[Rfam]
Description
Plastid-ccsA-ndhD-2 3UTR RNA: a 44-nucleotide sequence from Drimys granadensis. The base pairs follow the family's consensus structure, which was predicted with LocARNA.
RNA sequence: UUUUUGAGAACCAUUUGAAUCAAGUAGUAAUUCAAAUGGUUCUC
Numbered sequence: 001u002u003u004u005u006g007a008g009a010a011c012c013a014u015u016u017g018a019a020u021c022a023a024g025u026a027g028u029a030a031u032u033c034a035a036a037u038g039g040u041u042c043u044c
Base pairs, nucleotide, nucleotide: 006044007043008042009041010040011039012038013037014036015035016034017033018032019031020030
Background: Taxonomically the source falls in Drimys (Eukaryota, Streptophytina, Spermatophyta, Winteraceae). Rfam's curators put it in the seed alignment. Rfam's curators write: Plastid ccsA-ndhD-2 is a non-coding RNA (ncRNA) recognised in plastids. It was found in the three prime untranslated region (3UTR) of ccsA and ndhD genes, its 3UTR location suggests a role in transcript maturation. A reference for the family is Richter et al. (2023), "Retrograde signaling in plants: A critical review focusing on the GUN pathway and beyond", Plant Commun.